[Rfam]
RNA sequence: AAUAUUCUGAUGAAUAUCUUUAUUUUCUGACAUCUCUUAUGAACCGUUGUGAUUCAAUACAAUUAAUUAUUAUCUACUGAAGCU
Numbered sequence: 001a002a003u004a005u006u007c008u009g010a011u012g013a014a015u016a017u018c019u020u021u022a023u024u025u026u027c028u029g030a031c032a033u034c035u036c037u038u039a040u041g042a043a044c045c046g047u048u049g050u051g052a053u054u055c056a057a058u059a060c061a062a063u064u065a066a067u068u069a070u071u072a073u074c075u076a077c078u079g080a081a082g083c084u
Stems, first nucleotide, its partner, number of pairs: 001084001003082001039050004
Shown here is an 84-nucleotide sequence from Drosophila pseudoobscura, a member of the family "Small nucleolar RNA Me28S-Gm3255". It is annotated as a C/D-box small nucleolar RNA. A reference for the family is Huang et al. (2005), "Genome-wide analyses of two families of snoRNA genes from Drosophila melanogaster, demonstrating the extensive utilization of introns for coding of snoRNAs", RNA. Rfam 15.1 lists 39 matches to the family in 29 species. Rfam's curators put it in the seed alignment. The base pairs follow the family's consensus structure, which was predicted with PFOLD.